[Rfam]
RNA sequence: AGUAGUCGGCAGGGGUUUCUUUCGGCCUUCAGCGUGUCUGUAGUCUGUAGGCCGGCGGAAACUACUUGCUGGAUGCU
Number, nucleotide and partner (000 for none) at each position: 001a000002g000003u000004a000005g000006u072007c071008g070009g000010c068011a067012g066013g065014g063015g062016u061017u060018u059019c058020u057021u000022u055023c054024g053025g052026c051027c050028u049029u000030c047031a046032g045033c000034g000035u000036g000037u000038c000039u000040g000041u000042a000043g000044u000045c032046u031047g030048u000049a028050g027051g026052c025053c024054g023055g022056c000057g020058g019059a018060a017061a016062c015063u014064a000065c013066u012067u011068g010069c000070u008071g007072g006073a000074u000075g000076c000077u000